A member of the RNA family "Mammalian CPEB3 ribozyme" from Alligator sinensis, 76 nucleotides long. The organism belongs to Alligator, within Eukaryota. Rfam describes the family as follows. The mammalian CPEB3 ribozyme is a self cleaving RNA located in the second intron of the CPEB3 gene which belongs to a family of genes regulating messenger RNA polyadenylation.
[Rfam]
RNA sequence: GUUGCAAGUUUGAGGCCAUAACAGAAGUGCUCAUGGCACAUCCAUGUCAGAUCCCAGUGAAUCUGUGAAUUCUGCU
Number, nucleotide and partner (000 for none) at each position: 001g000002u000003u000004g000005c000006a000007a000008g000009u000010u000011u000012g000013a000014g043015g042016c000017c000018a000019u000020a076021a000022c074023a073024g072025a071026a070027g039028u038029g037030c000031u000032c000033a000034u000035g000036g000037c029038a028039c027040a000041u000042c015043c014044a000045u000046g000047u000048c065049a064050g063051a062052u061053c000054c059055c000056a000057g000058u000059g054060a000061a052062u051063c050064u049065g048066u000067g000068a000069a000070u026071u025072c024073u023074g022075c000076u020